[Rfam]
RNA: Bacterial RNase P class A
Organism: Butyrivibrio sp. ob235
RNA sequence: UGAGCAGGACAAAUGAUCGCGGCCGCUAGUCCCGUAAGGGCGCGGGUGAGGAAAGUCCGGGCUUCGUAGGGCAGGAUACCGGAUAACGUCCGGCGGAGGUGACUCCCGGGAAAGUGCAACAGAAAACAACCGCUCUUUAUGAGUAAGGGUGAAAAGGCGGUGUAAGAGACCACCGUGCAGAUGGUAACAUCUGUAGCCAUGUAAACCCUAUCCGAAGCAAGACCAAAAAGAAAACUAUGGGCCGGCCCGGUCCGUUUUCAGGUGGGUCGCUUGAGGCUGUCGGUAACGGCAGUCCUAGAUAGAUGAUCAUUCUCGACAUAACCCGGCUUACAGGCCUGCUCAUACA
Numbered sequence: 001u002g003a004g005c006a007g008g009a010c011a012a013a014u015g016a017u018c019g020c021g022g023c024c025g026c027u028a029g030u031c032c033c034g035u036a037a038g039g040g041c042g043c044g045g046g047u048g049a050g051g052a053a054a055g056u057c058c059g060g061g062c063u064u065c066g067u068a069g070g071g072c073a074g075g076a077u078a079c080c081g082g083a084u085a086a087c088g089u090c091c092g093g094c095g096g097a098g099g100u101g102a103c104u105c106c107c108g109g110g111a112a113a114g115u116g117c118a119a120c121a122g123a124a125a126a127c128a129a130c131c132g133c134u135c136u137u138u139a140u141g142a143g144u145a146a147g148g149g150u151g152a153a154a155a156g157g158c159g160g161u162g163u164a165a166g167a168g169a170c171c172a173c174c175g176u177g178c179a180g181a182u183g184g185u186a187a188c189a190u191c192u193g194u195a196g197c198c199a200u201g202u203a204a205a206c207c208c209u210a211u212c213c214g215a216a217g218c219a220a221g222a223c224c225a226a227a228a229a230g231a232a233a234a235c236u237a238u239g240g241g242c243c244g245g246c247c248c249g250g251u252c253c254g255u256u257u258u259c260a261g262g263u264g265g266g267u268c269g270c271u272u273g274a275g276g277c278u279g280u281c282g283g284u285a286a287c288g289g290c291a292g293u294c295c296u297a298g299a300u301a302g303a304u305g306a307u308c309a310u311u312c313u314c315g316a317c318a319u320a321a322c323c324c325g326g327c328u329u330a331c332a333g334g335c336c337u338g339c340u341c342a343u344a345c346a
Base pairs, nucleotide, nucleotide: 001342002341003340004339005338006337007336008335010333012311013310014309015308016307017306018305020048021047023045024044025043026042053329054328055327057326058325059324060323061322062217063216064215065214069248070247071246072245074213075212076211077210078209079093080092081091082090083089094108095106096105097104098103109208110207114206115205116202117201118200130148131147132144133143134142135141156174157173159171160170161169175197176195177194178193179192180191181190182189183188221268222267223266224265230259231258232257233256234255235254239253240252241251242250243249275294276293277292278291279290280289281288282287